[Rfam]
RNA sequence: AUGAACCGAUACCAGAGGGGAUCAGGACGAUCCGGGGGAUGACCCGCUAAUGCGGGCGGCUGCUCAGAGAGCACAACCGAAGCCCCUCCACACCUCAACGGCUGCCGCCCCGGCGCUCAGGUAUCGUUCG
Numbered sequence: 001a002u003g004a005a006c007c008g009a010u011a012c013c014a015g016a017g018g019g020g021a022u023c024a025g026g027a028c029g030a031u032c033c034g035g036g037g038g039a040u041g042a043c044c045c046g047c048u049a050a051u052g053c054g055g056g057c058g059g060c061u062g063c064u065c066a067g068a069g070a071g072c073a074c075a076a077c078c079g080a081a082g083c084c085c086c087u088c089c090a091c092a093c094c095u096c097a098a099c100g101g102c103u104g105c106c107g108c109c110c111c112g113g114c115g116c117u118c119a120g121g122u123a124u125c126g127u128u129c130g
Stems, first nucleotide, its partner, number of pairs: 002130004007126007019033005035086004043056005057079003061073005
RNA: EFASI RNA
Organism: Klebsiella sp. RIT-PI-d